[Rfam]
Description:
Shown here is a 100-nucleotide RNA sequence from Acrobeloides nanus, a member of the family "MIR158 microRNA precursor family". The family has 5 seed sequences and 27 matches in Rfam 15.1. For this family Rfam cites "MicroRNAs in plants" (Reinhart et al., Genes Dev, 2002).
RNA sequence: AAUCUUCAUCACGAAGUUGCAGAUUUUUUUUAUUAGGAACUUGUCAGGACGUCAUGACACGUUCCCAAUAAAAAAAUCUGCAAUUUCGUGAUGAAGAUUG
Numbered sequence: 001a002a003u004c005u006u007c008a009u010c011a012c013g014a015a016g017u018u019g020c021a022g023a024u025u026u027u028u029u030u031u032a033u034u035a036g037g038a039a040c041u042u043g044u045c046a047g048g049a050c051g052u053c054a055u056g057a058c059a060c061g062u063u064c065c066c067a068a069u070a071a072a073a074a075a076a077u078c079u080g081c082a083a084u085u086u087c088g089u090g091a092u093g094a095a096g097a098u099u100g
Stems, first nucleotide, its partner, number of pairs: 003097008012088001014086003018082001020080010031070004036065005042059005048053001